[Rfam]
RNA: Bacterial large subunit ribosomal RNA, nucleotides 9 to 512
Organism: Candidatus Hodgkinia cicadicola
RNA sequence: CGUCAGUAGAGCAUUUGGUGGAUGCCUAGGUGCACGCAGUCUAUGACUGGCCUGAGCUGCGCGGAGCUGUUUUACUAAAUCGGCUGUGAAGCGCAGGUUGCCUCAAUGGGAGCUUUACCCGCUUGGCGCGAGGUCCAAAGCGUCUGUUAAGACGGCAACGCGGGGAACUGAAACAUCUUAGUACCCGCAGGAAAGGAAAUCUUUUAGUGAGACUCCGUUAGUAGCGGCGAGCGAACUCGGAAUGGGCUGAGCGCGCUAAGUGCGUGGCGAAGAGCAAUUGUCUGGAACGGCAAGCUGAGCAACUGGUGAAAGCCCGGCCUCGAGCUGGCUCUUGGCGCUAGAAAGUAGGUCGGGACACGAGAAAUCCUGUCUGAACAUGGGGGGACCACCUUCCAAGCCUAAGUACUCGCGUGCAACCGAUAGUGGACUAGUACCGUGAGGGAAAGGUGAAACAGAGAUCUGAACAAGACAGUGAAACAGAACCUGAAACCGAAUGCUUACAAA
Numbered sequence: 001c002g003u004c005a006g007u008a009g010a011g012c013a014u015u016u017g018g019u020g021g022a023u024g025c026c027u028a029g030g031u032g033c034a035c036g037c038a039g040u041c042u043a044u045g046a047c048u049g050g051c052c053u054g055a056g057c058u059g060c061g062c063g064g065a066g067c068u069g070u071u072u073u074a075c076u077a078a079a080u081c082g083g084c085u086g087u088g089a090a091g092c093g094c095a096g097g098u099u100g101c102c103u104c105a106a107u108g109g110g111a112g113c114u115u116u117a118c119c120c121g122c123u124u125g126g127c128g129c130g131a132g133g134u135c136c137a138a139a140g141c142g143u144c145u146g147u148u149a150a151g152a153c154g155g156c157a158a159c160g161c162g163g164g165g166a167a168c169u170g171a172a173a174c175a176u177c178u179u180a181g182u183a184c185c186c187g188c189a190g191g192a193a194a195g196g197a198a199a200u201c202u203u204u205u206a207g208u209g210a211g212a213c214u215c216c217g218u219u220a221g222u223a224g225c226g227g228c229g230a231g232c233g234a235a236c237u238c239g240g241a242a243u244g245g246g247c248u249g250a251g252c253g254c255g256c257u258a259a260g261u262g263c264g265u266g267g268c269g270a271a272g273a274g275c276a277a278u279u280g281u282c283u284g285g286a287a288c289g290g291c292a293a294g295c296u297g298a299g300c301a302a303c304u305g306g307u308g309a310a311a312g313c314c315c316g317g318c319c320u321c322g323a324g325c326u327g328g329c330u331c332u333u334g335g336c337g338c339u340a341g342a343a344a345g346u347a348g349g350u351c352g353g354g355a356c357a358c359g360a361g362a363a364a365u366c367c368u369g370u371c372u373g374a375a376c377a378u379g380g381g382g383g384g385a386c387c388a389c390c391u392u393c394c395a396a397g398c399c400u401a402a403g404u405a406c407u408c409g410c411g412u413g414c415a416a417c418c419g420a421u422a423g424u425g426g427a428c429u430a431g432u433a434c435c436g437u438g439a440g441g442g443a444a445a446g447g448u449g450a451a452a453c454a455g456a457g458a459u460c461u462g463a464a465c466a467a468g469a470c471a472g473u474g475a476a477a478c479a480g481a482a483c484c485u486g487a488a489a490c491c492g493a494a495u496g497c498u499u500a501c502a503a504a
Stems, first nucleotide, its partner, number of pairs: 009499010024484001025447002029418002031415007038407002040155002049102003057096006066084003108120003121141004125136002143152003159190001160188005170177002200210002213403001214241004224232002244400004253338004264332001266330003270326001272321003278293005296302001304316003348372002351369005379394005434441002459469003